[Rfam]
The record is a 252-nucleotide part of an RNA from Haloarcula marismortui, which matches "Archaeal large subunit ribosomal RNA" in Rfam. The literature on the family includes a 2001 paper in Science by Yusupov et al., "Crystal structure of the ribosome at 5.5 A resolution". Rfam's curators put it in the seed alignment.
RNA sequence: UGGUGUCUGACAAGAACGACCGUAUAGUACGAGAGGAACUACGGUUGGUGGCCACUGGUGUACCGGUUGUUCGAGAGAGCACGUGCCGGGUAGCCACGCCACACGGGGUAAGAGCUGAACGCAUCUAAGCUCGAAACCCACUUGGAAAAGAGACACCGCCGAGGUCCCGCGUACAAGACGCGGUCGAUAGACUCGGGGUGUGCGCGUCGAGGUAACGAGACGUUAAGCCCACGAGCACUAACAGACCAAAGC
Numbered sequence: 001u002g003g004u005g006u007c008u009g010a011c012a013a014g015a016a017c018g019a020c021c022g023u024a025u026a027g028u029a030c031g032a033g034a035g036g037a038a039c040u041a042c043g044g045u046u047g048g049u050g051g052c053c054a055c056u057g058g059u060g061u062a063c064c065g066g067u068u069g070u071u072c073g074a075g076a077g078a079g080c081a082c083g084u085g086c087c088g089g090g091u092a093g094c095c096a097c098g099c100c101a102c103a104c105g106g107g108g109u110a111a112g113a114g115c116u117g118a119a120c121g122c123a124u125c126u127a128a129g130c131u132c133g134a135a136a137c138c139c140a141c142u143u144g145g146a147a148a149a150g151a152g153a154c155a156c157c158g159c160c161g162a163g164g165u166c167c168c169g170c171g172u173a174c175a176a177g178a179c180g181c182g183g184u185c186g187a188u189a190g191a192c193u194c195g196g197g198g199u200g201u202g203c204g205c206g207u208c209g210a211g212g213u214a215a216c217g218a219g220a221c222g223u224u225a226a227g228c229c230c231a232c233g234a235g236c237a238c239u240a241a242c243a244g245a246c247c248a249a250a251g252c
Base pairs, nucleotide, nucleotide: 001158002157003156004155005154006153007152008151011144012143013142014141017047018046019045020044021043022042023041024040048102049101050100051099052098056096057095058094063089064088065087066086067085068081069080070079071078072077105139106138107137112132113131114130115129116128163247164246165245166244167183168182169181170180171179188240189239190238192235193234194233195232196230197229198228204223205222206221207220208219211216